[Rfam]
The family of this 120-nucleotide RNA sequence from Streptomyces taklimakanensis is "Streptomyces sRNA scr5239". Its family is annotated with mRNA binding and negative regulation of translation in the Gene Ontology. A search with the family's covariance model found it, with a score of 100 bits.

RNA sequence: CUUCUGUCCUCCCCGCACAGGAGGGCGGAGCGGGACCCGGCGCUCUCUGCCCUGACUGCGCCAGGUCCUCGAUCGCUCCGGGCUGCGGUGCCGGACGGGUUGAGGGUCCCGUCCCGGCGC
Numbered sequence: 001c002u003u004c005u006g007u008c009c010u011c012c013c014c015g016c017a018c019a020g021g022a023g024g025g026c027g028g029a030g031c032g033g034g035a036c037c038c039g040g041c042g043c044u045c046u047c048u049g050c051c052c053u054g055a056c057u058g059c060g061c062c063a064g065g066u067c068c069u070c071g072a073u074c075g076c077u078c079c080g081g082g083c084u085g086c087g088g089u090g091c092c093g094g095a096c097g098g099g100u101u102g103a104g105g106g107u108c109c110c111g112u113c114c115c116g117g118c119g120c
Stems, first nucleotide, its partner, number of pairs: 003029004008024005032070001033068003037064001039062002042059002044055002074090004079085002093114007